Overview:
This 114-nucleotide sequence from Peribacillus muralis belongs to the Rfam family "SAM riboswitch aptamer (S box leader)".
RNA sequence: CUCUUAUCGAGAGAGGUAGAGGGAACGGCCCGAUGACACCUCAGCAACCUUCAUUUGUUUCAAACCAAUGAAAAGGUGCUAAUUCCACAAGUUUUUAAACUUGGAAGAUAAGAA
Number, nucleotide and partner (000 for none) at each position: 001c000002u113003c112004u111005u110006a109007u108008c107009g000010a000011g000012a000013g042014a041015g040016g039017u038018a000019g000020a000021g031022g030023g029024a000025a000026c000027g086028g085029c023030c022031c021032g000033a000034u000035g000036a000037c000038a017039c016040c015041u014042c013043a080044g079045c078046a077047a000048c076049c075050u072051u071052c070053a069054u068055u067056u000057g000058u000059u000060u000061c000062a000063a000064a000065c000066c000067a055068a054069u053070g052071a051072a050073a000074a000075g049076g048077u046078g045079c044080u043081a000082a000083u000084u106085c028086c027087a000088c103089a102090a101091g100092u099093u098094u000095u000096u000097a000098a093099a092100c091101u090102u089103g088104g000105a000106a084107g008108a007109u006110a005111a004112g003113a002114a000

Rfam's curators write: The SAM riboswitch is found upstream of a number of genes which code for proteins involved in methionine or cysteine biosynthesis in Gram-positive bacteria. NCBI's taxonomy places the organism under Bacteria, Bacillati, Bacilli, Bacillaceae, Peribacillus.